[Rfam]
RNA sequence: UGUCCGCCACAACGGCUUCCUGACGUGGCGGCGUAUUUCUCAAUGGAGCA
Numbered sequence: 001u002g003u004c005c006g007c008c009a010c011a012a013c014g015g016c017u018u019c020c021u022g023a024c025g026u027g028g029c030g031g032c033g034u035a036u037u038u039c040u041c042a043a044u045g046g047a048g049c050a
Base pairs, nucleotide, nucleotide: 004031005030006029007028008027009026010025013022014021015049016048017047019046020045
Source information:
The record is a 50-nucleotide RNA from Tropicimonas isoalkanivorans, which matches "SAM/SAH riboswitch aptamer" in Rfam. Gene Ontology terms of the family: S-adenosylmethionine metabolic process and regulation of gene expression. On this family, see Weickhmann et al., Nucleic Acids Res 2019: "The structure of the SAM/SAH-binding riboswitch".